[Rfam]
Description
This 215-nucleotide sequence from Ziziphus jujuba belongs to the Rfam family "Plant small nucleolar RNA U3". Rfam's curators write: Small nucleolar RNAs (snoRNAs) are involved in the processing and modification of rRNA in the nucleolus. There are two main classes of snoRNAs: the box C/D class, and the box H/ACA class. Gene Ontology terms of the family: nucleolus and RNA processing.
RNA sequence: ACGACCUUACUUGAACAGGAUCUGUUCUAUAGGCUCGUAUCUCUGUAUCCUUGUGAUCUAAGGAGACAGGAACCAAAUCCUGGUGGAUGAAUCAUGACCGUGUGAUCAGAGCGUGAUUAACAGCAUGGAUGGUCUUUGGACUGUCCGAUGCAGUAGAGGAUCGUUCUCAGCUGGUGUCUUCUGGCUGGGAUGGUCACACGGUUGUCUGACAGGUU
Numbered sequence: 001a002c003g004a005c006c007u008u009a010c011u012u013g014a015a016c017a018g019g020a021u022c023u024g025u026u027c028u029a030u031a032g033g034c035u036c037g038u039a040u041c042u043c044u045g046u047a048u049c050c051u052u053g054u055g056a057u058c059u060a061a062g063g064a065g066a067c068a069g070g071a072a073c074c075a076a077a078u079c080c081u082g083g084u085g086g087a088u089g090a091a092u093c094a095u096g097a098c099c100g101u102g103u104g105a106u107c108a109g110a111g112c113g114u115g116a117u118u119a120a121c122a123g124c125a126u127g128g129a130u131g132g133u134c135u136u137u138g139g140a141c142u143g144u145c146c147g148a149u150g151c152a153g154u155a156g157a158g159g160a161u162c163g164u165u166c167u168c169a170g171c172u173g174g175u176g177u178c179u180u181c182u183g184g185c186u187g188g189g190a191u192g193g194u195c196a197c198a199c200g201g202u203u204g205u206c207u208g209a210c211a212g213g214u215u
Stems, first nucleotide, its partner, number of pairs: 001038002003035001005033003013027006043069004048064006079213004097202012110165004120154002123151004127146008167188008

Its Rfam clan is "U3 clan". Pairs were carried over by alignment from the consensus structure, which is taken from published work.